This 251-nucleotide RNA sequence from Streptomyces gardneri belongs to the Rfam family "Streptomyces sRNA 4677". The match comes from Rfam's covariance-model search (180 bits).

RNA sequence: GGCUUCGGUGAGGCGGACGGUCUCCCAAAGGACGACCACAGAGAGAAAGAACCCGGACCAAGCCCCGCCCCUCCCGCCCCGGGCACACGCUCACUCAUGAGGGUGAAGAACCCCAACUCGGCUGGAUUCCACCCGGGUUGCCUGCUUUACGCUCAGCUCGGCUGGCAUAUGACCGCAGACACACGUCGGCCCCCGCCGGGACGGCAAUCCCAAUGCGAGGGCCUGACCACGAGGAAGAAGAAGCCUUCCCG
Numbered sequence: 001g002g003c004u005u006c007g008g009u010g011a012g013g014c015g016g017a018c019g020g021u022c023u024c025c026c027a028a029a030g031g032a033c034g035a036c037c038a039c040a041g042a043g044a045g046a047a048a049g050a051a052c053c054c055g056g057a058c059c060a061a062g063c064c065c066c067g068c069c070c071c072u073c074c075c076g077c078c079c080c081g082g083g084c085a086c087a088c089g090c091u092c093a094c095u096c097a098u099g100a101g102g103g104u105g106a107a108g109a110a111c112c113c114c115a116a117c118u119c120g121g122c123u124g125g126a127u128u129c130c131a132c133c134c135g136g137g138u139u140g141c142c143u144g145c146u147u148u149a150c151g152c153u154c155a156g157c158u159c160g161g162c163u164g165g166c167a168u169a170u171g172a173c174c175g176c177a178g179a180c181a182c183a184c185g186u187c188g189g190c191c192c193c194c195g196c197c198g199g200g201a202c203g204g205c206a207a208u209c210c211c212a213a214u215g216c217g218a219g220g221g222c223c224u225g226a227c228c229a230c231g232a233g234g235a236a237g238a239a240g241a242a243g244c245c246u247u248c249c250c251g
Base pairs, nucleotide, nucleotide: 008230009229010228016078018076019075091106092105093104094103095102096101121157122156123155124154125153188223189222190221191220192219194217195216196215198211199210200209201208233249234248235247236246237245

On this family, see Hindra et al., PLoS One 2014: "Complex intra-operonic dynamics mediated by a small RNA in Streptomyces coelicolor". The base pairs follow the family's consensus structure. It is annotated as a small RNA. The organism belongs to Streptomyces, within Bacteria. From the family's description: Located in the intergenic region between anti-sigma factor SCO4677 gene and a putative regulatory protein gene SCO4676. scr4677 expression requires the SCO4677 activity and scr4677 sRNA itself seem to affect the levels of the SCO4676-associated transcripts.